[Rfam]
RNA sequence: UACCUUUGCACUCGUAUUGAGAAAACCUCAAUCUACAUAAUAAUCAUUUAAAUAAUAUUAGCAUG
Numbered sequence: 001u002a003c004c005u006u007u008g009c010a011c012u013c014g015u016a017u018u019g020a021g022a023a024a025a026c027c028u029c030a031a032u033c034u035a036c037a038u039a040a041u042a043a044u045c046a047u048u049u050a051a052a053u054a055a056u057a058u059u060a061g062c063a064u065g
Stems, first nucleotide, its partner, number of pairs: 016032006
RNA: S15-Flavobacteria ribosomal protein leader
Organism: Flavobacterium terrae